[Rfam]
RNA: EGFOA RNA
RNA sequence: AUGCCCCUAGAUGGGCGGUGUGACUCCACCGACCCUAUUCCCGUCCGUGUGGCCCGAGAGGGCCAGGCUGGCGGUCAGAGCGGCAAUAGCCCACGCGAUAAAGCACGACCUAGGCGCGUCUGAUGACCGUA
Dot-bracket structure: .....[[[[[................................[[.[[[[(((((......))))).....(((((((..(.(((....))))(((((......]]]]]]]]]]])))))....))))))).